[Rfam]
RNA sequence: GUACCCCAUGAUGUCAGGUCCGCCGCAUCUCCUGGGUCGUGGGGUUUGUCGACUGAUCUGUGACCAACGCGGUUCCUCGUGCCGCGGUUUCGAUCAGUCGACACCCAU
Numbered sequence: 001g002u003a004c005c006c007c008a009u010g011a012u013g014u015c016a017g018g019u020c021c022g023c024c025g026c027a028u029c030u031c032c033u034g035g036g037u038c039g040u041g042g043g044g045u046u047u048g049u050c051g052a053c054u055g056a057u058c059u060g061u062g063a064c065c066a067a068c069g070c071g072g073u074u075c076c077u078c079g080u081g082c083c084g085c086g087g088u089u090u091c092g093a094u095c096a097g098u099c100g101a102c103a104c105c106c107a108u
Stems, first nucleotide, its partner, number of pairs: 003045008014035005047103011

Shown here is a 108-nucleotide sequence from Rhizobium giardinii, a member of the family "EcpR1". Its family is annotated with regulation of translation in response to stress, mRNA binding and negative regulation of cell cycle in the Gene Ontology. On this family, see Reinkensmeier et al., Genes (Basel) 2011: "Conservation and Occurrence of Trans-Encoded sRNAs in the Rhizobiales". A search with the family's covariance model found it, with a score of 79 bits. Taxonomically the source falls in Rhizobium (Bacteria, Alphaproteobacteria, Hyphomicrobiales, Rhizobiaceae). Perviously named SmelC291, SmrC10, or Sra33. Pairs were carried over by alignment from the consensus structure, which was predicted with WAR.